RNA sequence: AUGACGCGCUUUAAAUACACACACGUUUCGGCACAUAUGAUAGGGUCCCUUUGUGGGUUUCGUAUGGGAAGCGUGGAGGAAUAAC
Numbered sequence: 001a002u003g004a005c006g007c008g009c010u011u012u013a014a015a016u017a018c019a020c021a022c023a024c025g026u027u028u029c030g031g032c033a034c035a036u037a038u039g040a041u042a043g044g045g046u047c048c049c050u051u052u053g054u055g056g057g058u059u060u061c062g063u064a065u066g067g068g069a070a071g072c073g074u075g076g077a078g079g080a081a082u083a084a085c
Stems, first nucleotide, its partner, number of pairs: 022075008034066007042058001047057003
RNA: t44 RNA
Organism: Legionella longbeachae